[Rfam]
RNA sequence: GGUCACGAGCGCCAGCGCGAAGCCCCGGCUCGCUGGCCGGCAACCCCCUGUCACGGCGGGGUGCUCCGGGAGAUAACCAGGCCGAGCCCGGCCUGCCUCGCCA
Numbered sequence: 001g002g003u004c005a006c007g008a009g010c011g012c013c014a015g016c017g018c019g020a021a022g023c024c025c026c027g028g029c030u031c032g033c034u035g036g037c038c039g040g041c042a043a044c045c046c047c048c049u050g051u052c053a054c055g056g057c058g059g060g061g062u063g064c065u066c067c068g069g070g071a072g073a074u075a076a077c078c079a080g081g082c083c084g085a086g087c088c089c090g091g092c093c094u095g096c097c098u099c100g101c102c103a
Stems, first nucleotide, its partner, number of pairs: 001078003009038001011037006021030002039065003044061003047056002081102001083100004088095001
RNA: SAM (S-adenosyl methionine) riboswitch aptamer